Source information
raiA RNA: a 299-nucleotide sequence. The base pairs follow the family's consensus structure, which is taken from published work. Rfam's curators put it in the seed alignment.

[Rfam]
RNA sequence: AAGCGUUCGGUCUGUUGGUGCAAGUCGAAGCGAUCACGGCGCGAAACGACCCACGUAAGUCUCCAUGUCCUCAAGCCGCCUCGGAGGACGAAGGAGUGGCAGGGCCUCCAGGUCCGCUAUUCGACCACAUGCCUUUUGGAGAUGAUCAUGGCCGGGCCGGGGAAGCGAAGAGCUUCCAAGAUUUGUGUCAGUCCUGCCGCGAGAGCGAGAGACGCCAUAAAGGGAGCGCGGGCUCUGAAGUACCGGCUAAAGCGUCCAGCAGGCGAGUGUGGGGGCUAAACCAAGGUCAGCGAACGCUU
Numbered sequence: 001a002a003g004c005g006u007u008c009g010g011u012c013u014g015u016u017g018g019u020g021c022a023a024g025u026c027g028a029a030g031c032g033a034u035c036a037c038g039g040c041g042c043g044a045a046a047c048g049a050c051c052c053a054c055g056u057a058a059g060u061c062u063c064c065a066u067g068u069c070c071u072c073a074a075g076c077c078g079c080c081u082c083g084g085a086g087g088a089c090g091a092a093g094g095a096g097u098g099g100c101a102g103g104g105c106c107u108c109c110a111g112g113u114c115c116g117c118u119a120u121u122c123g124a125c126c127a128c129a130u131g132c133c134u135u136u137u138g139g140a141g142a143u144g145a146u147c148a149u150g151g152c153c154g155g156g157c158c159g160g161g162g163a164a165g166c167g168a169a170g171a172g173c174u175u176c177c178a179a180g181a182u183u184u185g186u187g188u189c190a191g192u193c194c195u196g197c198c199g200c201g202a203g204a205g206c207g208a209g210a211g212a213c214g215c216c217a218u219a220a221a222g223g224g225a226g227c228g229c230g231g232g233c234u235c236u237g238a239a240g241u242a243c244c245g246g247c248u249a250a251a252g253c254g255u256c257c258a259g260c261a262g263g264c265g266a267g268u269g270u271g272g273g274g275g276c277u278a279a280a281c282c283a284a285g286g287u288c289a290g291c292g293a294a295c296g297c298u299u
Stems, first nucleotide, its partner, number of pairs: 001299009012290003015284005028270001030268001031041001034156002037154003050151002055146001058143001060141001062139002193263005198207003211256004222248002229245003